[Rfam]
This 100-nucleotide sequence from Ureibacillus massiliensis belongs to the Rfam family "Purine riboswitch aptamer".
From the family's description: Riboswitches are metabolite binding domains within certain messenger RNAs that serve as precision sensors for their corresponding targets. Allosteric rearrangement of mRNA structure is mediated by ligand binding, and this results in modulation of gene expression. A class of riboswitches that selectively recognises guanine and becomes saturated at concentrations as low as 5 nM. In Bacillus subtilis, this mRNA motif is located on at least five separate transcriptional units that together encode 17 genes that are mostly involved in purine transport and purine nucleotide biosynthesis. It has also been shown that some members of this family are specific for adenine instead. Hence this family are termed purine riboswitches.
The organism belongs to Ureibacillus massiliensis, within Bacteria.
The match comes from Rfam's covariance-model search (87 bits).
RNA sequence: AAUCAAUUUAAUGAAAUCCCACAUAUAUGCUAGAGAAUAUGGCUCUAGUGUCUCUACCCGAUACCGUAAAUAUCGGACUAUGCGGGAAAGCGAACUUUAA
Numbered sequence: 001a002a003u004c005a006a007u008u009u010a011a012u013g014a015a016a017u018c019c020c021a022c023a024u025a026u027a028u029g030c031u032a033g034a035g036a037a038u039a040u041g042g043c044u045c046u047a048g049u050g051u052c053u054c055u056a057c058c059c060g061a062u063a064c065c066g067u068a069a070a071u072a073u074c075g076g077a078c079u080a081u082g083c084g085g086g087a088a089a090g091c092g093a094a095c096u097u098u099a100a
Stems, first nucleotide, its partner, number of pairs: 018086003022082004029049007058076006